[Rfam]
Source information:
The record is a 79-nucleotide RNA sequence from Astyanax mexicanus, which matches "mir-27 microRNA precursor family" in Rfam.

RNA sequence: UUGAGGAGCAGGACUUGGCUCGCUUUGUGAACAGAUCCGGGACAGGCCGUGUUCACAGUGGCUAAGUUCCGCUCCUCUG
Numbered sequence: 001u002u003g004a005g006g007a008g009c010a011g012g013a014c015u016u017g018g019c020u021c022g023c024u025u026u027g028u029g030a031a032c033a034g035a036u037c038c039g040g041g042a043c044a045g046g047c048c049g050u051g052u053u054c055a056c057a058g059u060g061g062c063u064a065a066g067u068u069c070c071g072c073u074c075c076u077c078u079g
Stems, first nucleotide, its partner, number of pairs: 011069010027056007

Rfam links the family to the GO terms RISC complex and miRNA-mediated post-transcriptional gene silencing. Pairs were carried over by alignment from the consensus structure, which was predicted with RNAalifold.